[Rfam]
RNA: Small nucleolar RNA SNORD56
Organism: Amazona collaria
RNA sequence: CCGCGGUGAUGGCAGCGUUUUUCGUCAGCAGCAUCUCACCCCGUGAAUGGUGACAGCUGUGGGGCUGAGCGG
Numbered sequence: 001c002c003g004c005g006g007u008g009a010u011g012g013c014a015g016c017g018u019u020u021u022u023c024g025u026c027a028g029c030a031g032c033a034u035c036u037c038a039c040c041c042c043g044u045g046a047a048u049g050g051u052g053a054c055a056g057c058u059g060u061g062g063g064g065c066u067g068a069g070c071g072g
Base pairs, nucleotide, nucleotide: 002071003070004069008026009025010024011023